A member of the RNA family "Cyano-1 RNA" from Lusitaniella coriacea, 72 nucleotides long. NCBI's taxonomy places the organism under Bacteria, Bacillati, Spirulinales, Lusitaniellaceae, Lusitaniella coriacea.

RNA sequence: UUGUGUGUGAGGAAUAGUGAGCGAAAAACUCUUGGGGUCGAAACACGGCAAGACUCCCAGGGGUUUUUUGCU
Numbered sequence: 001u002u003g004u005g006u007g008u009g010a011g012g013a014a015u016a017g018u019g020a021g022c023g024a025a026a027a028a029c030u031c032u033u034g035g036g037g038u039c040g041a042a043a044c045a046c047g048g049c050a051a052g053a054c055u056c057c058c059a060g061g062g063g064u065u066u067u068u069u070g071c072u
Stems, first nucleotide, its partner, number of pairs: 025067005032060005037054003